[Rfam]
RNA sequence: CAGCGUUCUCAGGGCGGGGUGGAAUUCCCCACCGGCGGUAUCCGUGCCUGUCACGGGAGCCCGCGAGCGCCCCGUGGCUCACCAUGGCCGCGGGGGUCAGCAGACCUGGUGAGAGGCCAGGGCCGACGGUCACAGUCCGGAUGAAAGAGACCGCAU
Numbered sequence: 001c002a003g004c005g006u007u008c009u010c011a012g013g014g015c016g017g018g019g020u021g022g023a024a025u026u027c028c029c030c031a032c033c034g035g036c037g038g039u040a041u042c043c044g045u046g047c048c049u050g051u052c053a054c055g056g057g058a059g060c061c062c063g064c065g066a067g068c069g070c071c072c073c074g075u076g077g078c079u080c081a082c083c084a085u086g087g088c089c090g091c092g093g094g095g096g097u098c099a100g101c102a103g104a105c106c107u108g109g110u111g112a113g114a115g116g117c118c119a120g121g122g123c124c125g126a127c128g129g130u131c132a133c134a135g136u137c138c139g140g141a142u143g144a145a146a147g148a149g150a151c152c153g154c155a156u
Stems, first nucleotide, its partner, number of pairs: 003154003007150004017029003031136002033125002035064004059123002067101002105121005127139003
This 156-nucleotide RNA from Ideonella dechloratans belongs to the Rfam family "FMN riboswitch aptamer (RFN element)".